[Rfam]
RNA: Small nucleolar RNA SNORA14
Organism: Orthonyx spaldingii
RNA sequence: CUGCAUUCUAAACCCUCCUGGCAGCCCCGCGUUGGCUUUCAGGAUAAGAAUGAAUGCCAGAGAAAACUGUUGAUUAAUCCAAGAUGGAGAACUCUUCUCCCAUGGCUCUUCAUUAUUUCACGUCAUCAACAUUU
Numbered sequence: 001c002u003g004c005a006u007u008c009u010a011a012a013c014c015c016u017c018c019u020g021g022c023a024g025c026c027c028c029g030c031g032u033u034g035g036c037u038u039u040c041a042g043g044a045u046a047a048g049a050a051u052g053a054a055u056g057c058c059a060g061a062g063a064a065a066a067c068u069g070u071u072g073a074u075u076a077a078u079c080c081a082a083g084a085u086g087g088a089g090a091a092c093u094c095u096u097c098u099c100c101c102a103u104g105g106c107u108c109u110u111c112a113u114u115a116u117u118u119c120a121c122g123u124c125a126u127c128a129a130c131a132u133u134u
Stems, first nucleotide, its partner, number of pairs: 003057004007050001009048001016044006023037003061134003068128002071125003083114007092105001